[Rfam]
RNA sequence: CGUAGGGCAUCACCCUACGCUGUUAUAUGCCGCCCUUUCAGGGCU
Numbered sequence: 001c002g003u004a005g006g007g008c009a010u011c012a013c014c015c016u017a018c019g020c021u022g023u024u025a026u027a028u029g030c031c032g033c034c035c036u037u038u039c040a041g042g043g044c045u
Stems, first nucleotide, its partner, number of pairs: 001019007032044005

About this RNA: Shown here is a 45-nucleotide sequence from Flavipsychrobacter stenotrophus, a member of the family "Acido-Lenti-1 RNA". The family has 87 seed sequences and 2,607 matches in Rfam 15.1. By type it is a small RNA. A search with the family's covariance model found it, with a score of 43 bits.